Source information: This 239-nucleotide RNA sequence from Tropilaelaps mercedesae belongs to the Rfam family "RNase MRP". Rfam classes the family as a ribozyme. A reference for the family is Piccinelli et al. (2005), "Identification and analysis of ribonuclease P and MRP RNA in a broad range of eukaryotes", Nucleic Acids Res. Clan: RNaseP clan. It scores 96 bits against the family's covariance model. From the family's description: RNase MRP is an enzymatically active ribonucleoprotein with two distinct roles in eukaryotes. In mitochondria it plays a direct role in the initiation of mitochondrial DNA replication. In the nucleus it is involved in precursor rRNA processing, where it cleaves the internal transcribed spacer 1 between 18S and 5.8S rRNAs. Despite distinct functions, RNase MRP has been shown to be evolutionarily related to RNase P. Like eukaryotic RNase P, RNase MRP is not catalytically active without associated protein subunits.

[Rfam]
RNA sequence: UCGUUUCUACUCUACCUGCUAAGGGGCAUCAAACGGAGUUCAAUGUAACUCAUUGGCCCUUGGGAAAGUCCCCGGACCACACAGCAGAGAGUGCUACCUAUUAAAAUAGGCGAUCCCUUCGCAAGCCGGCUAUUGGUGGUGCCGUGUGGCGAUGGGACCUGGUCGCAGCACAGGAAUGCGGGUAGCUACAGCGCUCGGCGCUACAGGGCAUACUCAAUGGGGCUCAUACAGUGGAGAUG
Numbered sequence: 001u002c003g004u005u006u007c008u009a010c011u012c013u014a015c016c017u018g019c020u021a022a023g024g025g026g027c028a029u030c031a032a033a034c035g036g037a038g039u040u041c042a043a044u045g046u047a048a049c050u051c052a053u054u055g056g057c058c059c060u061u062g063g064g065a066a067a068g069u070c071c072c073c074g075g076a077c078c079a080c081a082c083a084g085c086a087g088a089g090a091g092u093g094c095u096a097c098c099u100a101u102u103a104a105a106a107u108a109g110g111c112g113a114u115c116c117c118u119u120c121g122c123a124a125g126c127c128g129g130c131u132a133u134u135g136g137u138g139g140u141g142c143c144g145u146g147u148g149g150c151g152a153u154g155g156g157a158c159c160u161g162g163u164c165g166c167a168g169c170a171c172a173g174g175a176a177u178g179c180g181g182g183u184a185g186c187u188a189c190a191g192c193g194c195u196c197g198g199c200g201c202u203a204c205a206g207g208g209c210a211u212a213c214u215c216a217a218u219g220g221g222g223c224u225c226a227u228a229c230a231g232u233g234g235a236g237a238u239g
Stems, first nucleotide, its partner, number of pairs: 002239010014183006022061006036051005067224002070222004083095004097110005114155002119152004124147001127144003185209003